[Rfam]
RNA sequence: ACACGAGAGAGGAGGUGGUCCGUAACUUGCUGAGCUACAGGACUCGUGAGGUGGCUGUCCGCUAGCCGCCGUCCAGAUGGGCCGCCCGUCCGGCGUGGAAGCCGGACGACGGCAUGAUCGCCCGUCCGUCGUACGGCGGCGAGCGAGAACCGGACAGUCACCCGACCCCCGGGCCGCCGACCGUUGUCCAGUCGGCCCGCGAGCUGCUCCCC
Numbered sequence: 001a002c003a004c005g006a007g008a009g010a011g012g013a014g015g016u017g018g019u020c021c022g023u024a025a026c027u028u029g030c031u032g033a034g035c036u037a038c039a040g041g042a043c044u045c046g047u048g049a050g051g052u053g054g055c056u057g058u059c060c061g062c063u064a065g066c067c068g069c070c071g072u073c074c075a076g077a078u079g080g081g082c083c084g085c086c087c088g089u090c091c092g093g094c095g096u097g098g099a100a101g102c103c104g105g106a107c108g109a110c111g112g113c114a115u116g117a118u119c120g121c122c123c124g125u126c127c128g129u130c131g132u133a134c135g136g137c138g139g140c141g142a143g144c145g146a147g148a149a150c151c152g153g154a155c156a157g158u159c160a161c162c163c164g165a166c167c168c169c170c171g172g173g174c175c176g177c178c179g180a181c182c183g184u185u186g187u188c189c190a191g192u193c194g195g196c197c198c199g200c201g202a203g204c205u206g207c208u209c210c211c212c
Base pairs, nucleotide, nucleotide: 014059015058016057017056018055019054060145061144062143063142065140066139068137069136070135071134163206164205166203168201170199171198172197173196174195175194179193180192181191